[Rfam]
RNA: glmS glucosamine-6-phosphate activated ribozyme aptamer
Organism: Clostridiales bacterium oral taxon 876
RNA sequence: AUAUAAAGUAAAGCGCCAGAACUUAAUGUAAGUUAUUAAGUUGACGAGGAUAGGGAGUAUCGAAAUUUCGGCGGAUGCCCUACGGUAUCGCACUACCGUUAAAGAUUGAUAAAACUGAGAAGUAAUUUUCAGCACAAUAUCAAUUGAGUGUUAAAA
Numbered sequence: 001a002u003a004u005a006a007a008g009u010a011a012a013g014c015g016c017c018a019g020a021a022c023u024u025a026a027u028g029u030a031a032g033u034u035a036u037u038a039a040g041u042u043g044a045c046g047a048g049g050a051u052a053g054g055g056a057g058u059a060u061c062g063a064a065a066u067u068u069c070g071g072c073g074g075a076u077g078c079c080c081u082a083c084g085g086u087a088u089c090g091c092a093c094u095a096c097c098g099u100u101a102a103a104g105a106u107u108g109a110u111a112a113a114a115c116u117g118a119g120a121a122g123u124a125a126u127u128u129u130c131a132g133c134a135c136a137a138u139a140u141c142a143a144u145u146g147a148g149u150g151u152u153a154a155a156a
Stems, first nucleotide, its partner, number of pairs: 020042008051082005060071004083098005104145005115132007